A member of the RNA family "Small nucleolar RNA SNORD115" from Mesocricetus auratus, 79 nucleotides long. Rfam classes the family as a C/D-box small nucleolar RNA. The base pairs follow the family's consensus structure, which was predicted with PFOLD.
[Rfam]
RNA sequence: GGGUCUAUGAUGACAAACCUAUGUCAUGAAGAGAGGUGGUGACAUAAAUAUCAUGCUCUGGUUCUGGCAGCUGAGGCCC
Numbered sequence: 001g002g003g004u005c006u007a008u009g010a011u012g013a014c015a016a017a018c019c020u021a022u023g024u025c026a027u028g029a030a031g032a033g034a035g036g037u038g039g040u041g042a043c044a045u046a047a048a049u050a051u052c053a054u055g056c057u058c059u060g061g062u063u064c065u066g067g068c069a070g071c072u073g074a075g076g077c078c079c
Base pairs, nucleotide, nucleotide: 001079002078003077004076005073008070

The match comes from Rfam's covariance-model search (54 bits).
Gene Ontology terms of the family: RNA processing and nucleolus.
NCBI's taxonomy places the organism under Eukaryota, Gnathostomata, Sarcopterygii, Theria, Mesocricetus.